Record summary: This 155-nucleotide RNA from Sporanaerobacter acetigenes belongs to the Rfam family "Ribosomal protein L10 leader". Lineage of the source: Bacteria > Tissierellia > Tissierellales > Sporanaerobacter > Sporanaerobacter acetigenes. The family's consensus secondary structure was predicted with CMfinder. By type it is a cis-regulatory leader. For this family Rfam cites "Diverse mechanisms for regulating ribosomal protein synthesis in Escherichia coli" (Zengel and Lindahl, Prog Nucleic Acid Res Mol Biol, 1994). It scores 74 bits against the family's covariance model.
[Rfam]
Nucleotides: 155
Base pairs, nucleotide, nucleotide: 028058029057030056031055032054033053034044035043036042115140116139117138118137119136120135121134122133123132
Number, partner (000 for none) and nucleotide at each position: 001000g002000u003000u004000a005000a006000u007000u008000a009000a010000a011000u012000a013000g014000a015000u016000u017000c018000g019000c020000c021000g022000u023000a024000g025000a026000c027000a028058g029057u030056a031055g032054g033053a034044a035043c036042c037000g038000a039000u040000a041000a042036g043035g044034u045000u046000u047000a048000a049000a050000u051000a052000u053033u054032c055031c056030u057029a058028c059000c060000g061000a062000g063000g064000u065000g066000a067000g068000g069000c070000a071000g072000u073000g074000a075000a076000c077000u078000c079000u080000a081000a082000u083000a084000u085000g086000u087000u088000a089000a090000u091000u092000u093000a094000u095000a096000a097000a098000a099000u100000u101000a102000a103000u104000u105000a106000u107000a108000g109000a110000g111000a112000a113000a114000a115140g116139g117138u118137c119136u120135c121134u122133c123132c124000a125000a126000g127000u128000c129000u130000a131000c132123g133122g134121a135120g136119a137118g138117a139116c140115c141000u142000u143000u144000a145000u146000u147000u148000g149000c150000g151000u152000g153000u154000u155000c